Shown here is a 57-nucleotide RNA from Salmo salar, a member of the family "UnaL2 LINE 3' element".
The eel long interspersed element (LINE) UnaL2 and its partner short interspersed element (SINE) share a conserved 3' tail containing a stem-loop that is critical for their retrotransposition.
NCBI's taxonomy places the organism under Eukaryota, Eumetazoa, Euteleostomi, Actinopterygii, Salmo.
By type it is a cis-regulatory element.
Its family is annotated with transposition, RNA-mediated in the Gene Ontology.
RNA sequence: AACAAGCAUGUCUAGUGUAAGUCGCUCUGGAUAAGAGCGUCUGCUAAAUGACUUAAA
Numbered sequence: 001a002a003c004a005a006g007c008a009u010g011u012c013u014a015g016u017g018u019a020a021g022u023c024g025c026u027c028u029g030g031a032u033a034a035g036a037g038c039g040u041c042u043g044c045u046a047a048a049u050g051a052c053u054u055a056a057a
Stems, first nucleotide, its partner, number of pairs: 016046001017044003023039006
Dot-bracket structure: ...............((((...((((((.....))))))..))).)...........
It scores 65 bits against the family's covariance model.